[Rfam]
RNA: DUF2800 RNA
RNA sequence: ACGUUUCAAUGUUCAUCGCCUGAUCAGCGGUGCCCAGAGCGGAGAAACGGACACAAGUAAAUAUCAGUCAACCCACUGGGACGGUUGGCCAGUUAAGAAAUGAGGAUUUCAUUCUUAUGGCCAAUUAUUACGGGAAGUUCAGUGUGGGUCCUCA
Dot-bracket structure: .((((.(..(((((((((.........)))))[[[[[))))..).)))).................(((.((...]]]]].....(((((........(((((.....))))).....)))))....................)).))).....